[Rfam]
RNA sequence: UCCAGUUUCACGCCUACAACUAGGGGGUCACAUACGAGUACCAGAUUCGUUUGGUUGCUCAUAUUUUUUUUUGCCCUCGGGAAGGUCUGAGACCAGGGUCGUUAAAUGCUCUAGCUGGGCAUCCCUGUAAACAGGGAGUGAGGUAAAAGAAAAAGGCGGUGCCGAUCUUCUUGUUCAUUCUCAUGCCGGGGACGCGAUUUUGUCUCAAAAGAGGGAAAAGAGCUGAGGUGAUAGAUUGAAUAGGAAUUGGGAAAACCUUAUGGCUGGCGAUUACAGUUCAAUUUGUAGGGUGGGGCUAUAUUAGUUCCAUAACUCAAUUCAGACUACGUCGAGACUGGA
Numbered sequence: 001u002c003c004a005g006u007u008u009c010a011c012g013c014c015u016a017c018a019a020c021u022a023g024g025g026g027g028u029c030a031c032a033u034a035c036g037a038g039u040a041c042c043a044g045a046u047u048c049g050u051u052u053g054g055u056u057g058c059u060c061a062u063a064u065u066u067u068u069u070u071u072u073g074c075c076c077u078c079g080g081g082a083a084g085g086u087c088u089g090a091g092a093c094c095a096g097g098g099u100c101g102u103u104a105a106a107u108g109c110u111c112u113a114g115c116u117g118g119g120c121a122u123c124c125c126u127g128u129a130a131a132c133a134g135g136g137a138g139u140g141a142g143g144u145a146a147a148a149g150a151a152a153a154a155g156g157c158g159g160u161g162c163c164g165a166u167c168u169u170c171u172u173g174u175u176c177a178u179u180c181u182c183a184u185g186c187c188g189g190g191g192a193c194g195c196g197a198u199u200u201u202g203u204c205u206c207a208a209a210a211g212a213g214g215g216a217a218a219a220g221a222g223c224u225g226a227g228g229u230g231a232u233a234g235a236u237u238g239a240a241u242a243g244g245a246a247u248u249g250g251g252a253a254a255a256c257c258u259u260a261u262g263g264c265u266g267g268c269g270a271u272u273a274c275a276g277u278u279c280a281a282u283u284u285g286u287a288g289g290g291u292g293g294g295g296c297u298a299u300a301u302u303a304g305u306u307c308c309a310u311a312a313c314u315c316a317a318u319u320c321a322g323a324c325u326a327c328g329u330c331g332a333g334a335c336u337g338g339a
Stems, first nucleotide, its partner, number of pairs: 001339004007333003013288001018283001023078005036060005041054005087322005097265004107121005122137006138261007160246001162244001290310007